Shown here is a 118-nucleotide RNA from Cyclobacterium lianum, a member of the family "Group II catalytic intron D1-D4-2". The match comes from Rfam's covariance-model search (76 bits).

RNA sequence: AAGGGAAGGCUCCUCCGAGCCAGUGUACAAGCGCAGGCCCCAAACCGCCUUUAAGCUGCUUGGGUUAAAUGCGCUGGUAGUGAGCGUUAGAGGAAAAGGCCAUUUGAAUGGGUCAGGU
Numbered sequence: 001a002a003g004g005g006a007a008g009g010c011u012c013c014u015c016c017g018a019g020c021c022a023g024u025g026u027a028c029a030a031g032c033g034c035a036g037g038c039c040c041c042a043a044a045c046c047g048c049c050u051u052u053a054a055g056c057u058g059c060u061u062g063g064g065u066u067a068a069a070u071g072c073g074c075u076g077g078u079a080g081u082g083a084g085c086g087u088u089a090g091a092g093g094a095a096a097a098g099g100c101c102a103u104u105u106g107a108a109u110g111g112g113u114c115a116g117g118u
Stems, first nucleotide, its partner, number of pairs: 002014004017040001019038003023034004046117001048093002051090004055081002058078003062074001064072002098114004